[Rfam]
RNA: SAM riboswitch aptamer (S box leader)
RNA sequence: CUCUUAUCAAGAGUAGCGGAGGGACUGGCCCGAUGAAGCUCGGCAACCGUUCAUGUUUUAAAACAUGGAAAGGUGCUAAAUCCUGCAAAAACACAUUGUGUUUUGAAAGAUGAGAG
Numbered sequence: 001c002u003c004u005u006a007u008c009a010a011g012a013g014u015a016g017c018g019g020a021g022g023g024a025c026u027g028g029c030c031c032g033a034u035g036a037a038g039c040u041c042g043g044c045a046a047c048c049g050u051u052c053a054u055g056u057u058u059u060a061a062a063a064c065a066u067g068g069a070a071a072g073g074u075g076c077u078a079a080a081u082c083c084u085g086c087a088a089a090a091a092c093a094c095a096u097u098g099u100g101u102u103u104u105g106a107a108a109g110a111u112g113a114g115a116g
Base pairs, nucleotide, nucleotide: 001116002115003114004113005112006111007110008109013041015040016039017038021031022030023029025085027083028082042077043076044075045074047073048072050069051068052067053066054065055064081108086105087104088103089102090101